[Rfam]
RNA sequence: GCCGCAGACCGCCUUAUCGUCGUCCUGAUUUAUUGGGAGGGAGGAAAGUCCGGACACCACAGAGAAGCAUAGCGGGUAACACCCGUCGGCGUUAGAAAUGGCGCAAGGACAAGUGCAACAGAAAGUAUGUACAGGUAAUGCUGUAGUGAAACCAGGUAAACUCUAUGCGGUGAAAUACCAAGUAUAUCAGCAUUUAAGGGCUUCUCGUUCGUUGCUGAAGGGUAGGUAGCUUGAGUCAUGCAGUAAUGCAUGAUCUAGAUAAAUGAUAAGGUAUUGUUAGUAAUAACAAGAACAGAAUCCGGCUUACAGGUCUGCAUUUUUU
Numbered sequence: 001g002c003c004g005c006a007g008a009c010c011g012c013c014u015u016a017u018c019g020u021c022g023u024c025c026u027g028a029u030u031u032a033u034u035g036g037g038a039g040g041g042a043g044g045a046a047a048g049u050c051c052g053g054a055c056a057c058c059a060c061a062g063a064g065a066a067g068c069a070u071a072g073c074g075g076g077u078a079a080c081a082c083c084c085g086u087c088g089g090c091g092u093u094a095g096a097a098a099u100g101g102c103g104c105a106a107g108g109a110c111a112a113g114u115g116c117a118a119c120a121g122a123a124a125g126u127a128u129g130u131a132c133a134g135g136u137a138a139u140g141c142u143g144u145a146g147u148g149a150a151a152c153c154a155g156g157u158a159a160a161c162u163c164u165a166u167g168c169g170g171u172g173a174a175a176u177a178c179c180a181a182g183u184a185u186a187u188c189a190g191c192a193u194u195u196a197a198g199g200g201c202u203u204c205u206c207g208u209u210c211g212u213u214g215c216u217g218a219a220g221g222g223u224a225g226g227u228a229g230c231u232u233g234a235g236u237c238a239u240g241c242a243g244u245a246a247u248g249c250a251u252g253a254u255c256u257a258g259a260u261a262a263a264u265g266a267u268a269a270g271g272u273a274u275u276g277u278u279a280g281u282a283a284u285a286a287c288a289a290g291a292a293c294a295g296a297a298u299c300c301g302g303c304u305u306a307c308a309g310g311u312c313u314g315c316a317u318u319u320u321u322u
Base pairs, nucleotide, nucleotide: 001318004315005314006313007312008311009310010309011307012271013270014269015268016267017266018265020041021040023038024037025036026035027034028033046305047304048303050302051301052300053299054298055172056171057170058169062206063205064204065203067168068167069166070165071164072086073085074084075083076082087107089104090103091102092101093100094099108163109162113161114160115157116156130145131144132143133142134141176228177227178226179225187218188217189216190215191214198210199209200208201207235254236253237252238251239250240249241248242247
RNA: Bacterial RNase P class A
Organism: Flavobacterium cheongpyeongense